[Rfam]
RNA sequence: AUUUUUCUAGAAUGUGCCUUUCUAUCGGCUCGUUCUUAUCAUAGAAGCAUAUAUUUAAAAAAAAAUUCAUGUAAUGCCAGUUUUAAACAGCAUGAUGUGUAUGGUUGCUUGCAUCGUGUUACCUGUCAUCUGGUAAAUUU
Dot-bracket structure: ..((((.(......(((...(((((...............))))).))).......).)))).............(((((.(......(((.(((((..............))))).))).......).)))))......

Shown here is a 140-nucleotide RNA from Spirodela intermedia, a member of the family "small nucleolar RNA snoR137". For this family Rfam cites "Mining small RNA sequencing data: a new approach to identify small nucleolar RNAs in Arabidopsis" (Chen and Wu, Nucleic Acids Res, 2009). It scores 52 bits against the family's covariance model. Its family is annotated with nucleolus and RNA processing in the Gene Ontology.